Notes: The family of this 184-nucleotide RNA sequence from Molossus molossus is "Small Cajal body specific RNA 16". The family's RNA type in Rfam is small Cajal body RNA.
RNA sequence: AUGGUUUGGAGAAAGGCUCCUGUGUUGUUGAACCUGCCCAGUUGUGGGUGAAGCCUUGUACCAGGCAGCCCUACCCUGACCUAAAGUAAAUUCCCAGAAGUUUUUCAUGGGUUUUGAAUUUGCAGUAACAGGAGUGAAUAUUCUAGCAACAGUUUGGUGAUCACGUAUGAUACUAAAAACGCAA
Numbered sequence: 001a002u003g004g005u006u007u008g009g010a011g012a013a014a015g016g017c018u019c020c021u022g023u024g025u026u027g028u029u030g031a032a033c034c035u036g037c038c039c040a041g042u043u044g045u046g047g048g049u050g051a052a053g054c055c056u057u058g059u060a061c062c063a064g065g066c067a068g069c070c071c072u073a074c075c076c077u078g079a080c081c082u083a084a085a086g087u088a089a090a091u092u093c094c095c096a097g098a099a100g101u102u103u104u105u106c107a108u109g110g111g112u113u114u115u116g117a118a119u120u121u122g123c124a125g126u127a128a129c130a131g132g133a134g135u136g137a138a139u140a141u142u143c144u145a146g147c148a149a150c151a152g153u154u155u156g157g158u159g160a161u162c163a164c165g166u167a168u169g170a171u172a173c174u175a176a177a178a179a180c181g182c183a184a
Base pairs, nucleotide, nucleotide: 003081004080005079006078008076009075015070016069017068018067019065020064021063022062024061025060027054028053029052032049033048034047093111094110095109097106098105099104119179120178121177124174125173126172127171129169130168135163136162137161139159140158141157142156145154146153147152
It scores 175 bits against the family's covariance model. The literature on the family includes a 2002 paper in EMBO J by Darzacq et al., "Cajal body-specific small nuclear RNAs: a novel class of 2'-O-methylation and pseudouridylation guide RNAs". About the family: scaRNAs are a specific class of small nuclear RNAs which localise to the Cajal bodies and guide the modification of RNA polymerase II transcribed spliceosomal RNAs U1, U2, U4, U5 and U12. ACA47 belongs to the H/ACA box class of guide RNAs as it has the predicted hairpin-hinge-hairpin-tail structure, the conserved H/ACA-box motifs and is found associated with GAR1. Lineage of the source: Eukaryota > Metazoa > Teleostomi > Amniota > Molossus. Rfam links the family to the GO terms RNA processing and nucleolus.